The family of this 75-nucleotide RNA sequence from Trabulsiella odontotermitis is "tpke11". The base pairs follow the family's consensus structure, which was predicted with WAR. From the family's description: In Yersinia located in ICR upstream dnaJ (chaperone)gene. Has temperature responsive RNA structure.
RNA sequence: AACGGGUAAAGACUGGCACGGGCGAAGAGGUUUCCUCUCCGCCCGUGCUCGCAUGUUAAGGGCAAUGAAAAGAGA
Numbered sequence: 001a002a003c004g005g006g007u008a009a010a011g012a013c014u015g016g017c018a019c020g021g022g023c024g025a026a027g028a029g030g031u032u033u034c035c036u037c038u039c040c041g042c043c044c045g046u047g048c049u050c051g052c053a054u055g056u057u058a059a060g061g062g063c064a065a066u067g068a069a070a071a072g073a074g075a
Base pairs, nucleotide, nucleotide: 003015004014005013016048017047018046019045020044021043022042023041024040026038027037028036029035